[Rfam]
RNA sequence: UAAAGACCUUGUUAGGUGAGGCUCCUAUGCAAACAUAGGCCACUGCCCAGAAAUAUCGAAAGAUGCCCAUGGGUAGAACAGGAAUUGCCGGAUUAAGGCUUUUCUUAAGGUGGCUAAGAGAAGAAGGCUUCUCUUUACGUUGCAUAGUGCUAAAACUCAACUAGGGGGCGCGGGA
Numbered sequence: 001u002a003a004a005g006a007c008c009u010u011g012u013u014a015g016g017u018g019a020g021g022c023u024c025c026u027a028u029g030c031a032a033a034c035a036u037a038g039g040c041c042a043c044u045g046c047c048c049a050g051a052a053a054u055a056u057c058g059a060a061a062g063a064u065g066c067c068c069a070u071g072g073g074u075a076g077a078a079c080a081g082g083a084a085u086u087g088c089c090g091g092a093u094u095a096a097g098g099c100u101u102u103u104c105u106u107a108a109g110g111u112g113g114c115u116a117a118g119a120g121a122a123g124a125a126g127g128c129u130u131c132u133c134u135u136u137a138c139g140u141u142g143c144a145u146a147g148u149g150c151u152a153a154a155a156c157u158c159a160a161c162u163a164g165g166g167g168g169c170g171c172g173g174g175a
Stems, first nucleotide, its partner, number of pairs: 005171001008168003011161002013096001015157003020151003025147008039114005045074005054065004081105004087099003116135006